RNA: Small nucleolar RNA R16
RNA sequence: AGUGGCAAAUGAUGGAAAUAUUCUUAUCCUACACACCGAACAUUGAUGUGGAUUAAUUCUUCGCUUAUUAUCUGAUGCCAUU
Dot-bracket structure: ..(((((....................................................................)))))..
Numbered sequence: 001a002g003u004g005g006c007a008a009a010u011g012a013u014g015g016a017a018a019u020a021u022u023c024u025u026a027u028c029c030u031a032c033a034c035a036c037c038g039a040a041c042a043u044u045g046a047u048g049u050g051g052a053u054u055a056a057u058u059c060u061u062c063g064c065u066u067a068u069u070a071u072c073u074g075a076u077g078c079c080a081u082u
Stems, first nucleotide, its partner, number of pairs: 003080005